This 83-nucleotide RNA sequence from Crocodylus porosus belongs to the Rfam family "Mammalian CPEB3 ribozyme".
NCBI's taxonomy places the organism under Eukaryota, Sarcopterygii, Tetrapoda, Longirostres, Crocodylus.
Rfam describes the family as follows. The mammalian CPEB3 ribozyme is a self cleaving RNA located in the second intron of the CPEB3 gene which belongs to a family of genes regulating messenger RNA polyadenylation.
RNA sequence: UGUUGAGCGGUGGGGGACAUAACAGAAGCAUUCACAUUGUGACCCCUGUCAGGUAAUACCUGGUAAGACCUGAAAAUUCUGCU
Numbered sequence: 001u002g003u004u005g006a007g008c009g010g011u012g013g014g015g016g017a018c019a020u021a022a023c024a025g026a027a028g029c030a031u032u033c034a035c036a037u038u039g040u041g042a043c044c045c046c047u048g049u050c051a052g053g054u055a056a057u058a059c060c061u062g063g064u065a066a067g068a069c070c071u072g073a074a075a076a077u078u079c080u081g082c083u
Base pairs, nucleotide, nucleotide: 013046014045015044016043018041021083023081024080025079026078027077028040029039030038050072051071052070053069054068
Dot-bracket structure: ............[[[[.[..(.((((((((.......)))].]]]]...(((((.............)))))....))))).)